Annotation: The record is an 80-nucleotide RNA sequence from Danionella cerebrum, which matches "mir-199 microRNA precursor family" in Rfam. This family consists of the microRNA (miRNA) precursor mir-199 which appears to be specific to humans. Animal miRNAs are transcribed as ~70nt precursors and subsequently processed by the Dicer enzyme to give a ~22nt product. A reference for the family is Mourelatos et al. (2002), "miRNPs: a novel class of ribonucleoproteins containing numerous microRNAs", Genes Dev. A search with the family's covariance model found it, with a score of 90 bits.
RNA sequence: GUGCCGCCCCCCCAGUGUUCAGACUACCUGUUCAGGAAGUCGUGUUUGUACAGUAGUCUGCACAUUGGUUAGGCUGCUCG
Numbered sequence: 001g002u003g004c005c006g007c008c009c010c011c012c013c014a015g016u017g018u019u020c021a022g023a024c025u026a027c028c029u030g031u032u033c034a035g036g037a038a039g040u041c042g043u044g045u046u047u048g049u050a051c052a053g054u055a056g057u058c059u060g061c062a063c064a065u066u067g068g069u070u071a072g073g074c075u076g077c078u079c080g
Stems, first nucleotide, its partner, number of pairs: 012068007020060007028053004033048002